Source information: SAM riboswitch aptamer (S box leader): a 163-nucleotide RNA sequence from Nocardioides dokdonensis. Taxonomically the source falls in Nocardioides dokdonensis (Bacteria, Actinomycetota, Propionibacteriales, Nocardioidaceae).
RNA sequence: AGCUCAUCAAGAGGGACUGAGGGAACGGCCCGUCGACGUCCCGGCAACCGCCACGAUCCUCCGCCCACCGGGCGGUCCGCACCUGCGGCCCGCCUGCGACAGCGGUUCGUGGAAACGGUGCUACAUCCGGCCCGGUGCGAAGGACGCCCGGGGAAGAUGAGGA
Numbered sequence: 001a002g003c004u005c006a007u008c009a010a011g012a013g014g015g016a017c018u019g020a021g022g023g024a025a026c027g028g029c030c031c032g033u034c035g036a037c038g039u040c041c042c043g044g045c046a047a048c049c050g051c052c053a054c055g056a057u058c059c060u061c062c063g064c065c066c067a068c069c070g071g072g073c074g075g076u077c078c079g080c081a082c083c084u085g086c087g088g089c090c091c092g093c094c095u096g097c098g099a100c101a102g103c104g105g106u107u108c109g110u111g112g113a114a115a116c117g118g119u120g121c122u123a124c125a126u127c128c129g130g131c132c133c134g135g136u137g138c139g140a141a142g143g144a145c146g147c148c149c150g151g152g153g154a155a156g157a158u159g160a161g162g163a
Base pairs, nucleotide, nucleotide: 003161004160005159006158007157008156013042014041015040016039017038021031022030023029026129027128028127043122044121045120046119048118049117126155131152132151133150134149135148

Record summary:
The base pairs follow the family's consensus structure, which is taken from published work.